[Rfam]
RNA sequence: UCGGAUGUGAUGAAAAAAUCUACACAUUCGGAUUUCGUAUGAUAUCUAUGCGUAGAUGAUUCUCCGACAGAUACUUCUGAUCCGA
Numbered sequence: 001u002c003g004g005a006u007g008u009g010a011u012g013a014a015a016a017a018a019u020c021u022a023c024a025c026a027u028u029c030g031g032a033u034u035u036c037g038u039a040u041g042a043u044a045u046c047u048a049u050g051c052g053u054a055g056a057u058g059a060u061u062c063u064c065c066g067a068c069a070g071a072u073a074c075u076u077c078u079g080a081u082c083c084g085a
Stems, first nucleotide, its partner, number of pairs: 001085005
Rfam assigns this 85-nucleotide RNA sequence from Kalanchoe fedtschenkoi to the family "Small nucleolar RNA R12". A search with the family's covariance model found it, with a score of 41 bits. Pairs were carried over by alignment from the consensus structure, which was predicted with PFOLD. Taxonomically the source falls in Kalanchoe (Eukaryota, Viridiplantae, Streptophyta, Embryophyta). Its family is annotated with RNA processing and nucleolus in the Gene Ontology. The family's RNA type in Rfam is C/D-box small nucleolar RNA. snoR12 is a C/D box small nucleolar RNA, which acts as a methylation guide for 25S ribosomal RNA in plants. snoR12 has been alternatively named snoZ44 in Arabidopsis and snoZ131 in rice.